Shown here is a 127-nucleotide sequence from Pannonibacter phragmitetus, a member of the family "Alphaproteobacterial ar14".
The pairing is the family consensus, mapped onto this sequence.
Lineage of the source: Bacteria > Pseudomonadati > Pseudomonadota > Hyphomicrobiales > Pannonibacter.
Rfam describes the family as follows. Smr14C2 was renamed NfeR1 (Nodule Formation Efficiency RNA) highly expressed in salt stress and during the symbiotic interaction on legume roots.
RNA sequence: GAUCGCGGUCACAGGCUCUCCUCCUCCCAAGCCUUGUGACUGUGUGCCGGCGGGGUUCUUCUCCUCCCAAACCCUGCCUGCUGAAACAGCGCCCGCCAGUACCUCCUCCCACUGGCGGGCGUUCGUU
Numbered sequence: 001g002a003u004c005g006c007g008g009u010c011a012c013a014g015g016c017u018c019u020c021c022u023c024c025u026c027c028c029a030a031g032c033c034u035u036g037u038g039a040c041u042g043u044g045u046g047c048c049g050g051c052g053g054g055g056u057u058c059u060u061c062u063c064c065u066c067c068c069a070a071a072c073c074c075u076g077c078c079u080g081c082u083g084a085a086a087c088a089g090c091g092c093c094c095g096c097c098a099g100u101a102c103c104u105c106c107u108c109c110c111a112c113u114g115g116c117g118g119g120c121g122u123u124c125g126u127u
Stems, first nucleotide, its partner, number of pairs: 007041003011037003014033003047080001049078008089122011
By type it is a small RNA.